[Rfam]
RNA sequence: UCCAGUGGUAGUCAGCUGUCCAGAGCAGGACUGUGCCUGAGAUAGUGUUACACUGCUGGGAGAUUAAGAACAGUCAUUUCUUCUGGCUGUUGUUGUCACCGUUCUGGAGACAGCUGAUGCCAGAACAGAGUGGCACUGUGCUUCCCUGAGAGUGCACUAAAGAUUUGCUCUCCCUCUCUAGUGCUAGUCUGGAAGCGUACAUA
Number, nucleotide and partner (000 for none) at each position: 001u060002c059003c058004a057005g056006u055007g054008g053009u052010a000011g051012u050013c000014a000015g046016c045017u044018g043019u042020c041021c039022a038023g037024a000025g000026c000027a000028g000029g000030a000031c000032u000033g000034u000035g000036c000037c023038u022039g021040a000041g020042a019043u018044a017045g016046u015047g000048u000049u000050a012051c011052a009053c008054u007055g006056c005057u004058g003059g002060g001061a000062g000063a000064u000065u000066a000067a000068g136069a000070a000071c000072a000073g134074u133075c132076a131077u000078u000079u000080c000081u000082u129083c128084u127085g126086g000087c119088u000089g000090u116091u000092g114093u000094u112095g111096u110097c109098a000099c107100c106101g000102u000103u000104c000105u000106g100107g099108a000109g097110a096111c095112a094113g000114c092115u000116g090117a000118u000119g087120c000121c000122a000123g000124a000125a000126c085127a084128g083129a082130g000131u076132g075133g074134c073135a000136c068137u000138g198139u197140g196141c195142u194143u193144c192145c191146c000147u000148g000149a000150g000151a000152g000153u000154g184155c183156a182157c000158u180159a179160a000161a177162g176163a175164u000165u000166u000167g000168c000169u000170c000171u000172c000173c000174c000175u163176c162177u161178c000179u159180a158181g000182u156183g155184c154185u000186a000187g000188u000189c000190u000191g145192g144193a143194a142195g141196c140197g139198u138199a000200c000201a000202u000203a000
The record is a 203-nucleotide sequence from Columba livia, which matches "Small nucleolar RNA SNORA74" in Rfam.
U19 belongs to the H/ACA class of snoRNAs. snoRNAs bind a number of proteins (including dyskerin, Gar1p and Nop10p in the case of the H/ACA class) to form snoRNP complexes. This class are thought to guide the sites of modification of uridines to pseudouridines by forming direct base pairing interactions with substrate RNAs. Targets may include ribosomal and spliceosomal RNAs but the exact functions of many snoRNAs, including U19, are not confirmed. Co-precipitation of U19 snoRNA with RNase MRP RNA suggests that U19 may be involved in pre-rRNA processing.
By type it is an H/ACA-box small nucleolar RNA.
It scores 103 bits against the family's covariance model.
Pairs were carried over by alignment from the consensus structure, which was predicted with PFOLD.
Its family is annotated with RNA processing and nucleolus in the Gene Ontology.
Taxonomically the source falls in Columba (Eukaryota, Metazoa, Sarcopterygii, Archosauria).